Rfam assigns this 35-nucleotide sequence from Rhodocytophaga rosea to the family "DUF805b RNA". A search with the family's covariance model found it, with a score of 42 bits. The base pairs follow the family's consensus structure, which is taken from published work. It is annotated as a cis-regulatory element.

RNA sequence: UAAGCGGUCGCCGAAAAGCUUUGAUAGAGUAGGCA
Numbered sequence: 001u002a003a004g005c006g007g008u009c010g011c012c013g014a015a016a017a018g019c020u021u022u023g024a025u026a027g028a029g030u031a032g033g034c035a
Stems, first nucleotide, its partner, number of pairs: 002021004010034003